RNA: Iron response element I
Organism: Sciurus vulgaris
RNA sequence: CGGUUUCCUGCUUCAACAGUGCUUGGAUGGCGCUCG
Dot-bracket structure: (((.(.((.(.((((((...).)))))))).).)))
Numbered sequence: 001c002g003g004u005u006u007c008c009u010g011c012u013u014c015a016a017c018a019g020u021g022c023u024u025g026g027a028u029g030g031c032g033c034u035c036g
Stems, first nucleotide, its partner, number of pairs: 001036003005032001007030002010028001012027005017021001